[Rfam]
RNA sequence: GAAUAAGUGCAUGUGGUGGAUGCCUUGGCGAUUACAGGCGAUGAAGGACGUAGCAGUCUGCGAAAAGCCACGGGGAGCUGACAAGCAAGCUUUGAUCCGUGGAUAUCCGAAUGGGGAAACCCACCCGCAAGGGUACUCCCUCCUGAAUACAUAGGGAGGGUAGAGCGAACGCAGCGAACUGAAACAUCUAAGUAGCUGCAGGAAAAGAAAUCAACCGAGAUUCCGUAAGUAGUGGCGAGCGAACACGGAAGAGCCUUGCAACUUUUAGCACACGAAUUAACAGAACGGUCUGGAAAGUCCGGCGAUAGUGGGUGAUAGCCCCGUAUGUAAAAAUUCGAGUGUGGAACUAGGGUUGCGACAAGUAGGGCGGGGCACGAGAAACCUUGUCUGAAUAUGGGGGGACCAUCCUCCAAGGCUAAAUACUCGUAAUCGACCGAUAGUGAACUAGUACCGUGAGGGAAAGGCGAAAAGAACCCCGGGAGGGGAGUGAAAUAGAUCCUGAAACCGCAUGCAUACAAA
Numbered sequence: 001g002a003a004u005a006a007g008u009g010c011a012u013g014u015g016g017u018g019g020a021u022g023c024c025u026u027g028g029c030g031a032u033u034a035c036a037g038g039c040g041a042u043g044a045a046g047g048a049c050g051u052a053g054c055a056g057u058c059u060g061c062g063a064a065a066a067g068c069c070a071c072g073g074g075g076a077g078c079u080g081a082c083a084a085g086c087a088a089g090c091u092u093u094g095a096u097c098c099g100u101g102g103a104u105a106u107c108c109g110a111a112u113g114g115g116g117a118a119a120c121c122c123a124c125c126c127g128c129a130a131g132g133g134u135a136c137u138c139c140c141u142c143c144u145g146a147a148u149a150c151a152u153a154g155g156g157a158g159g160g161u162a163g164a165g166c167g168a169a170c171g172c173a174g175c176g177a178a179c180u181g182a183a184a185c186a187u188c189u190a191a192g193u194a195g196c197u198g199c200a201g202g203a204a205a206a207g208a209a210a211u212c213a214a215c216c217g218a219g220a221u222u223c224c225g226u227a228a229g230u231a232g233u234g235g236c237g238a239g240c241g242a243a244c245a246c247g248g249a250a251g252a253g254c255c256u257u258g259c260a261a262c263u264u265u266u267a268g269c270a271c272a273c274g275a276a277u278u279a280a281c282a283g284a285a286c287g288g289u290c291u292g293g294a295a296a297g298u299c300c301g302g303c304g305a306u307a308g309u310g311g312g313u314g315a316u317a318g319c320c321c322c323g324u325a326u327g328u329a330a331a332a333a334u335u336c337g338a339g340u341g342u343g344g345a346a347c348u349a350g351g352g353u354u355g356c357g358a359c360a361a362g363u364a365g366g367g368c369g370g371g372g373c374a375c376g377a378g379a380a381a382c383c384u385u386g387u388c389u390g391a392a393u394a395u396g397g398g399g400g401g402a403c404c405a406u407c408c409u410c411c412a413a414g415g416c417u418a419a420a421u422a423c424u425c426g427u428a429a430u431c432g433a434c435c436g437a438u439a440g441u442g443a444a445c446u447a448g449u450a451c452c453g454u455g456a457g458g459g460a461a462a463g464g465c466g467a468a469a470a471g472a473a474c475c476c477c478g479g480g481a482g483g484g485g486a487g488u489g490a491a492a493u494a495g496a497u498c499c500u501g502a503a504a505c506c507g508c509a510u511g512c513a514u515a516c517a518a519a
Stems, first nucleotide, its partner, number of pairs: 007514010022499001023464002027435002029432007036424002038166002046108003049062003068102007077090003113122003123134004136163002138160007170201001171199005181188002211218002221420001222249005232240002252417004258356005266344001268342004273337006280328003286301003290297001310322003365389008396411005451458002474485004
This 519-nucleotide part of an RNA from Sulfuricella denitrificans belongs to the Rfam family "Bacterial large subunit ribosomal RNA". Lineage of the source: Bacteria > Pseudomonadati > Pseudomonadota > Sulfuricella > Sulfuricella denitrificans. The base pairs follow the family's consensus structure, which is taken from published work.